RT-15 RNA: a 191-nucleotide sequence from Cupriavidus basilensis. The match comes from Rfam's covariance-model search (191 bits). It is annotated as a small RNA. The base pairs follow the family's consensus structure, which is taken from published work. Lineage of the source: Bacteria > Pseudomonadati > Burkholderiales > Burkholderiaceae > Cupriavidus.
RNA sequence: CGUCGCCUGUUGCAUGACCGUCAAGGCGGUCAUGCCCGUGCGAUUUUUAAUCUGGUCGUGCCGCUGGCUCACAAGGCCACCGCCAUGCGCAUCACAGAUACCGCUGGGAGUCACCAGGGCUGGUCUGGCGCAGUUUCCCCACUGAUCGGCCCAGGCCUUCGGCGAGGCGACGUAGAUAGCACGAAUAGACG
Number, nucleotide and partner (000 for none) at each position: 001c000002g000003u000004c042005g041006c040007c000008u000009g000010u000011u000012g035013c034014a033015u032016g031017a030018c029019c028020g027021u026022c000023a000024a000025g000026g021027c020028g019029g018030u017031c016032a015033u014034g013035c012036c000037c000038g000039u000040g006041c005042g004043a000044u000045u000046u000047u000048u000049a000050a000051u000052c000053u000054g000055g000056u184057c183058g182059u181060g180061c179062c082063g081064c000065u079066g078067g077068c076069u075070c000071a000072c000073a000074a000075g069076g068077c067078c066079a065080c000081c063082g062083c000084c000085a000086u132087g131088c130089g129090c128091a000092u000093c000094a000095c127096a126097g125098a124099u000100a000101c123102c122103g000104c117105u116106g115107g000108g114109a000110g000111u000112c000113a000114c108115c106116a105117g104118g000119g000120c000121u000122g102123g101124u098125c097126u096127g095128g090129c089130g088131c087132a086133g000134u170135u169136u000137c167138c166139c000140c164141a000142c162143u161144g160145a159146u000147c000148g157149g156150c155151c000152c000153a000154g000155g150156c149157c148158u000159u145160c144161g143162g142163c000164g140165a000166g138167g137168c000169g135170a134171c000172g000173u000174a000175g000176a000177u000178a000179g061180c060181a059182c058183g057184a056185a000186u000187a000188g000189a000190c000191g000